[Rfam]
RNA sequence: UCUAUAACUCGAGAUAUGGGCUGAACAUUGACAGUAUCUUGGCUACAGAACAGAUUCAGACUUCUCCAUUGUUGCUAUAAUUUGAAUUUGAAAACGGCCUUUUUAAAUUUUGAACUCCACAUGAAAGUUUUAAGCCUAUAUCUUACCUUUCCAUC
Numbered sequence: 001u002c003u004a005u006a007a008c009u010c011g012a013g014a015u016a017u018g019g020g021c022u023g024a025a026c027a028u029u030g031a032c033a034g035u036a037u038c039u040u041g042g043c044u045a046c047a048g049a050a051c052a053g054a055u056u057c058a059g060a061c062u063u064c065u066c067c068a069u070u071g072u073u074g075c076u077a078u079a080a081u082u083u084g085a086a087u088u089u090g091a092a093a094a095c096g097g098c099c100u101u102u103u104u105a106a107a108u109u110u111u112g113a114a115c116u117c118c119a120c121a122u123g124a125a126a127g128u129u130u131u132a133a134g135c136c137u138a139u140a141u142c143u144u145a146c147c148u149u150u151c152c153a154u155c
Stems, first nucleotide, its partner, number of pairs: 003153001006150002009145001011144010022132004027128003034122002041117002044114001047111004053104002059098001061097002071087003
MIR2912 microRNA precursor family: a 155-nucleotide RNA from Populus tomentosa. NCBI's taxonomy places the organism under Eukaryota, Streptophytina, Tracheophyta, Pentapetalae, Populus.